The family of this 54-nucleotide sequence from Coregonus sp. 'balchen' is "UnaL2 LINE 3' element". The match comes from Rfam's covariance-model search (66 bits). The organism belongs to Coregonus, within Eukaryota.

[Rfam]
RNA sequence: UCACUUACUAAUUGUAAGUCGCUCUGGAUAAGAGCGUCUGCUAAAUGACUAAAA
Numbered sequence: 001u002c003a004c005u006u007a008c009u010a011a012u013u014g015u016a017a018g019u020c021g022c023u024c025u026g027g028a029u030a031a032g033a034g035c036g037u038c039u040g041c042u043a044a045a046u047g048a049c050u051a052a053a054a
Stems, first nucleotide, its partner, number of pairs: 013043001014041003020036006